RNA sequence: AGGAGCAACAACUGUAGAGGCGGCCAGCUCUGGGGCCCUGGAGUAAGCUCCCGCAGUAGCUAUGGAGCUCUCAGUCUGCAGAAGCCUGAUGCUCUGGGGGCAG
Numbered sequence: 001a002g003g004a005g006c007a008a009c010a011a012c013u014g015u016a017g018a019g020g021c022g023g024c025c026a027g028c029u030c031u032g033g034g035g036c037c038c039u040g041g042a043g044u045a046a047g048c049u050c051c052c053g054c055a056g057u058a059g060c061u062a063u064g065g066a067g068c069u070c071u072c073a074g075u076c077u078g079c080a081g082a083a084g085c086c087u088g089a090u091g092c093u094c095u096g097g098g099g100g101c102a103g
Base pairs, nucleotide, nucleotide: 002095003094004093005092006091007090009088010087012084013083019076020075021074022071023070026069027068028067029066030065031064032063034061038056039055040054

This 103-nucleotide sequence from Nyctereutes procyonoides belongs to the Rfam family "mir-8834 microRNA precursor family". It scores 43 bits against the family's covariance model. Taxonomically the source falls in Nyctereutes (Eukaryota, Vertebrata, Gnathostomata, Boreoeutheria).